[Rfam]
RNA: msiK RNA
Organism: Ornithinimicrobium ciconiae
RNA sequence: CGGGACCGUCCUUUACAACGGAUCGUCCGGCACGUUCCUGCCGGUGAAGGAGAAGUCCC
Numbered sequence: 001c002g003g004g005a006c007c008g009u010c011c012u013u014u015a016c017a018a019c020g021g022a023u024c025g026u027c028c029g030g031c032a033c034g035u036u037c038c039u040g041c042c043g044g045u046g047a048a049g050g051a052g053a054a055g056u057c058c059c
Stems, first nucleotide, its partner, number of pairs: 009051007027044006